[Rfam]
RNA: Purine riboswitch aptamer
Organism: Gottschalkia purinilytica
RNA sequence: AUAAUUAAAUAGUUAAUCGCUCGUAUAUCCUUGGUAAUAUGGUCCAAAAGUAUCUACCGGGUCACCGAAAAUGAUCUGACUACGUGCUUCAAGAAAUAAUAG
Number, nucleotide and partner (000 for none) at each position: 001a000002u000003a000004a000005u000006u000007a000008a000009a000010u000011a000012g000013u000014u000015a000016a000017u000018c000019g087020c086021u000022c084023g083024u082025a081026u000027a000028u000029c000030c000031u047032u046033g045034g044035u000036a000037a000038u000039a000040u000041g000042g000043u000044c034045c033046a032047a031048a000049a000050g000051u000052a000053u000054c000055u000056a000057c000058c078059g077060g076061g075062u074063c073064a072065c000066c000067g000068a000069a000070a000071a000072u064073g063074a062075u061076c060077u059078g058079a000080c000081u025082a024083c023084g022085u000086g020087c019088u000089u000090c000091a000092a000093g000094a000095a000096a000097u000098a000099a000100u000101a000102g000